Rfam assigns this 319-nucleotide sequence from Trichoglossum hirsutum to the family "A. fumigatus sRNA Afu_309". The literature on the family includes a 2008 paper in Nucleic Acids Res by Jochl et al., "Small ncRNA transcriptome analysis from Aspergillus fumigatus suggests a novel mechanism for regulation of protein synthesis". A search with the family's covariance model found it, with a score of 164 bits. The source organism's lineage runs through Eukaryota, Opisthokonta, Dikarya, Pezizomycotina and Trichoglossum.
RNA sequence: UCCAACAUCCAGAUCUGUGCUCAGCGAUCCUGACUCUGCAAUCCCUCUGGGGGCUGACGGAUGUUCCAGUUGCAUCGCUGGGCAGUUCGACCGAACCUAAGGAGCCAUCUUCAUUUCUUUCACUAAAGAAGCAAAUUUAUGGUGUCAAUCUUCCGGUCGACAGGUCUAUGAAAGAUUCACCGCUCCCGCAUUCUCUGCCUGAGCUCCCUUCGGGUGACGCUCGACAGGAGGAGAGUUGGCUGAAGGCGCCAUAUUCCACUUCCCUUUGCCAAGGCCGUCGGCUUGUGAGGCUGGGGACAAACCAUGGCCGCAUACAUUC
Numbered sequence: 001u002c003c004a005a006c007a008u009c010c011a012g013a014u015c016u017g018u019g020c021u022c023a024g025c026g027a028u029c030c031u032g033a034c035u036c037u038g039c040a041a042u043c044c045c046u047c048u049g050g051g052g053g054c055u056g057a058c059g060g061a062u063g064u065u066c067c068a069g070u071u072g073c074a075u076c077g078c079u080g081g082g083c084a085g086u087u088c089g090a091c092c093g094a095a096c097c098u099a100a101g102g103a104g105c106c107a108u109c110u111u112c113a114u115u116u117c118u119u120u121c122a123c124u125a126a127a128g129a130a131g132c133a134a135a136u137u138u139a140u141g142g143u144g145u146c147a148a149u150c151u152u153c154c155g156g157u158c159g160a161c162a163g164g165u166c167u168a169u170g171a172a173a174g175a176u177u178c179a180c181c182g183c184u185c186c187c188g189c190a191u192u193c194u195c196u197g198c199c200u201g202a203g204c205u206c207c208c209u210u211c212g213g214g215u216g217a218c219g220c221u222c223g224a225c226a227g228g229a230g231g232a233g234a235g236u237u238g239g240c241u242g243a244a245g246g247c248g249c250c251a252u253a254u255u256c257c258a259c260u261u262c263c264c265u266u267u268g269c270c271a272a273g274g275c276c277g278u279c280g281g282c283u284u285g286u287g288a289g290g291c292u293g294g295g296g297a298c299a300a301a302c303c304a305u306g307g308c309c310g311c312a313u314a315c316a317u318u319c
Stems, first nucleotide, its partner, number of pairs: 011167008019083006026076003029072001030069003033064002035061002039056002042053004091159001093158001095157003101146002104143005180239002186233001196226002199223001201222004205217002207214002246311002248308005261297005268291003273283004